[Rfam]
RNA sequence: GGCUCUGUGAUUACCUGCCCUAAUUGGGCGAUAUACGCUAUUCCGAUUCACAGAAUGAGCAGAUUAUUUUUUGAUCAAAUAUGAGAGCU
Dot-bracket structure: (((((...............................................................................)))))
Description
Shown here is an 89-nucleotide RNA from Morus notabilis, a member of the family "Small nucleolar RNA U54". Gene Ontology terms of the family: nucleolus and RNA processing. U54 is a C/D box small nucleolar RNA, which acts as a methylation guide for 18S ribosomal RNA in plants. It scores 47 bits against the family's covariance model. Its Rfam clan is "U54 clan". Taxonomically the source falls in Morus (Eukaryota, Streptophyta, Magnoliopsida, fabids).